[Rfam]
RNA sequence: GGCCUCAAGUGAUGGAGAUGACAACCUGGGAGUACUGUGACCGAACUGGGAUGUAUUCGUACUGUCUGAUGGGGCC
Numbered sequence: 001g002g003c004c005u006c007a008a009g010u011g012a013u014g015g016a017g018a019u020g021a022c023a024a025c026c027u028g029g030g031a032g033u034a035c036u037g038u039g040a041c042c043g044a045a046c047u048g049g050g051a052u053g054u055a056u057u058c059g060u061a062c063u064g065u066c067u068g069a070u071g072g073g074g075c076c
Stems, first nucleotide, its partner, number of pairs: 001076007011066005018060002020057002023054001025050002028047002
Small nucleolar RNA ZL2: a 76-nucleotide sequence from Bos taurus.
Gene Ontology terms of the family: nucleolus and RNA processing.
For this family Rfam cites "Insights into snoRNA biogenesis and processing from PAR-CLIP of snoRNA core proteins and small RNA sequencing" (Kishore et al., Genome Biol, 2013).
Rfam's curators put it in the seed alignment.
Rfam classes the family as a C/D-box small nucleolar RNA.
Pairs were carried over by alignment from the consensus structure, which was predicted with RNAfold.